Shown here is a 65-nucleotide sequence from Lentibacillus populi, a member of the family "Bacillaceae-1 RNA". NCBI's taxonomy places the organism under Bacteria, Bacillota, Bacilli, Caryophanales, Lentibacillus. The family's RNA type in Rfam is small RNA. Pairs were carried over by alignment from the consensus structure, which is taken from published work.
RNA sequence: CGGCAGGAAUGUUCGGUUAAGACCGCUGCUCCCGGCAGCAACACCGAACCACCCUGCAUGGCAGG
Dot-bracket structure: ..........(((((((.......(((((.....)))))...)))))))...(((((...)))))